[Rfam]
RNA sequence: CCGGGAGUCGGUCGGACGUUCGCGUCCGCUCACCGGGUCAGGUCCGGAAGGAAGCAGCCCAGGUGGAUGGCAGCGGGUCGGCCGGCUCCUUUUUC
Dot-bracket structure: ...(((((((((((..((((...(((((((....((((....(((....)))....)))).)))))))...))))...)))))))))))......
RNA: Bacterial small signal recognition particle RNA
Organism: Altererythrobacter ishigakiensis